[Rfam]
Notes:
A member of the RNA family "Lysine riboswitch aptamer" from Propionispora sp. 2/2-37, 177 nucleotides long. About the family: Riboswitches are metabolite binding domains within certain messenger RNAs that serve as precision sensors for their corresponding targets. It scores 100 bits against the family's covariance model.

Nucleotides: 177
Stems, first nucleotide, its partner, number of pairs: 007171005016079004021074002024071001033064007083109004088104006110136002113133008138162002141159004
Number, partner (000 for none) and nucleotide at each position: 001000g002000u003000u004000u005000g006000u007171a008170g009169u010168a011167g012000a013000g014000g015000u016079g017078c018077g019076g020000a021074u022073g023000a024071u025000c026000a027000a028000u029000a030000g031000u032000a033064c034063c035062u036061g037060u038059c039058u040000g041000a042000g043000u044000c045000u046000g047000g048000c049000a050000g051000a052000c053000g054000a055000u056000g057000a058039g059038g060037a061036u062035g063034g064033g065000g066000a067000a068000a069000g070000g071024g072000g073022c074021a075000g076019c077018c078017g079016c080000c081000g082000a083109a084108g085107u086106g087000c088104c089103a090102g091101u092100c093099u094000g095000c096000c097000g098000g099093a100092g101091g102090c103089u104088g105000u106086c107085g108084c109083u110136g111135g112000g113133c114132u115131u116130g117129u118128a119127u120126u121000u122000a123000a124000u125000a126120g127119a128118u129117g130116c131115a132114a133113g134000a135111c136110u137000g138162u139161c140000g141159c142158u143157u144156g145000a146000u147000g148000a149000u150000u151000g152000g153000c154000a155000u156144c157143a158142a159141g160000g161139g162138g163000a164000g165000c166000g167011c168010u169009a170008c171007u172000u173000c174000u175000u176000a177000c